Overview: Shown here is an 88-nucleotide sequence from Smithella sp. D17, a member of the family "pan motif". Pairs were carried over by alignment from the consensus structure, which is taken from published work. The source organism's lineage runs through Bacteria, Pseudomonadati, Syntrophales, Smithellaceae and Smithella. A search with the family's covariance model found it, with a score of 37 bits.
RNA sequence: AGGCAAAUAAUUUAAUUUACUUGACAAAAAAAUAAAAGUUUGUUAGUUAUUCGUAUUCGCUUGGAUCCGCAAGGACUGAGACGAGAGG
Numbered sequence: 001a002g003g004c005a006a007a008u009a010a011u012u013u014a015a016u017u018u019a020c021u022u023g024a025c026a027a028a029a030a031a032a033u034a035a036a037a038g039u040u041u042g043u044u045a046g047u048u049a050u051u052c053g054u055a056u057u058c059g060c061u062u063g064g065a066u067c068c069g070c071a072a073g074g075a076c077u078g079a080g081a082c083g084a085g086a087g088g
Base pairs, nucleotide, nucleotide: 003025004023005022006021008019010018057084058083059082060080061079062078063077064076066075067074068073